Description
Rfam assigns this 59-nucleotide RNA from Oceanobacillus iheyensis to the family "Ribosomal protein L13 leader". The family's consensus secondary structure was predicted with CMfinder. This family is a putative r-protein leader autoregulatory structure found in B. subtilis and other low-GC Gram-positive bacteria. It is located in the 5' untranslated regions of mRNAs encoding the L13-S9 (rplM-rpsI) ribosomal protein operon. Rfam links the family to the GO term regulation of gene expression. On this family, see Zengel and Lindahl, Prog Nucleic Acid Res Mol Biol 1994: "Diverse mechanisms for regulating ribosomal protein synthesis in Escherichia coli". It is one of the family's seed sequences.

[Rfam]
RNA sequence: GGCAUUUUAUUUCUAAACCAUGAUUAGCCCCGGAAUCUAAUUAUGUUAGAAUAUAAAUA
Numbered sequence: 001g002g003c004a005u006u007u008u009a010u011u012u013c014u015a016a017a018c019c020a021u022g023a024u025u026a027g028c029c030c031c032g033g034a035a036u037c038u039a040a041u042u043a044u045g046u047u048a049g050a051a052u053a054u055a056a057a058u059a
Stems, first nucleotide, its partner, number of pairs: 008055003011051004020044008